Source information:
The record is an 80-nucleotide sequence from Lymphocryptovirus humangamma4, which matches "mir-BART20 microRNA precursor family" in Rfam. The literature on the family includes a 2006 paper in PLoS Pathog by Cai et al., "Epstein-Barr virus microRNAs are evolutionarily conserved and differentially expressed". The organism belongs to Lymphocryptovirus humangamma4, within Viruses.

RNA sequence: UAGGGCCUAUUGUAGCAGGCAUGUCUUCAUUCCUGCGUACCGAAUGGCAUGAAGGCACAGCCUGUUACCAUUGGCACCUU
Numbered sequence: 001u002a003g004g005g006c007c008u009a010u011u012g013u014a015g016c017a018g019g020c021a022u023g024u025c026u027u028c029a030u031u032c033c034u035g036c037g038u039a040c041c042g043a044a045u046g047g048c049a050u051g052a053a054g055g056c057a058c059a060g061c062c063u064g065u066u067a068c069c070a071u072u073g074g075c076a077c078c079u080u
Stems, first nucleotide, its partner, number of pairs: 002079003005075003009071002012068009022057009032047002
The base pairs follow the family's consensus structure, which was predicted with RNAalifold.
It is one of the family's seed sequences.